[Rfam]
RNA sequence: AUCCCAACGAGGAUCUCAAGACCUACCGAUAGGAAGUGCCAUUUGACAAUGUAAACAGCAGCUGCUUCUUUCUGCUGCAAGUGUCUAUCCUUCGACCAUAACCUCUGAUCUGAGAUGGAGCCUCAUCUAUAGUUGUUUAAUUCAGUUGUGAUGUAAUUUAAAUCGGGUCCCUAAGGGGU
Numbered sequence: 001a002u003c004c005c006a007a008c009g010a011g012g013a014u015c016u017c018a019a020g021a022c023c024u025a026c027c028g029a030u031a032g033g034a035a036g037u038g039c040c041a042u043u044u045g046a047c048a049a050u051g052u053a054a055a056c057a058g059c060a061g062c063u064g065c066u067u068c069u070u071u072c073u074g075c076u077g078c079a080a081g082u083g084u085c086u087a088u089c090c091u092u093c094g095a096c097c098a099u100a101a102c103c104u105c106u107g108a109u110c111u112g113a114g115a116u117g118g119a120g121c122c123u124c125a126u127c128u129a130u131a132g133u134u135g136u137u138u139a140a141u142u143c144a145g146u147u148g149u150g151a152u153g154u155a156a157u158u159u160a161a162a163u164c165g166g167g168u169c170c171c172u173a174a175g176g177g178g179u
Base pairs, nucleotide, nucleotide: 001179002178003177004176005175075132076131077130079128081126082125083124084119085118086117087116088115089114094110095109097107098106
Shown here is a 179-nucleotide sequence from Miscanthus lutarioriparius, a member of the family "Small nucleolar RNA Z112". Rfam classes the family as a C/D-box small nucleolar RNA. A reference for the family is Liang et al. (2002), "A novel gene organization: intronic snoRNA gene clusters from Oryza sativa", Nucleic Acids Res. The family is grouped with related families in Rfam's "SNORD49 clan".